[Rfam]
RNA: mir-16 microRNA precursor family
Organism: Ameiurus melas
RNA sequence: UUCUUGCUUCAGCAGCACGAGCAUACUGGAGACAUUUGUCUUGGUGUAACUCCAAUAUUUACAUGCUGCUAAAGCAAGAC
Numbered sequence: 001u002u003c004u005u006g007c008u009u010c011a012g013c014a015g016c017a018c019g020a021g022c023a024u025a026c027u028g029g030a031g032a033c034a035u036u037u038g039u040c041u042u043g044g045u046g047u048a049a050c051u052c053c054a055a056u057a058u059u060u061a062c063a064u065g066c067u068g069c070u071a072a073a074g075c076a077a078g079a080c
Stems, first nucleotide, its partner, number of pairs: 002079002005076003011070007020060001023058003027054003